A member of the RNA family "mir-1290 microRNA precursor family" from Prolemur simus, 76 nucleotides long. Pairs were carried over by alignment from the consensus structure, which was predicted with RNAalifold. Lineage of the source: Eukaryota > Craniata > Vertebrata > Euteleostomi > Prolemur. It scores 83 bits against the family's covariance model.
RNA sequence: GAGCAUCAUGUUGAUACUCAGAAAGUUUUAGAUUUUGGAGCAUUUCUGAUUUUGGAUUUUUGGAUUAGGGAUGUUC
Numbered sequence: 001g002a003g004c005a006u007c008a009u010g011u012u013g014a015u016a017c018u019c020a021g022a023a024a025g026u027u028u029u030a031g032a033u034u035u036u037g038g039a040g041c042a043u044u045u046c047u048g049a050u051u052u053u054g055g056a057u058u059u060u061u062g063g064a065u066u067a068g069g070g071a072u073g074u075u076c
Stems, first nucleotide, its partner, number of pairs: 001076007011068004018063007027056006034049002037046003

Gene Ontology terms of the family: RISC complex and miRNA-mediated post-transcriptional gene silencing.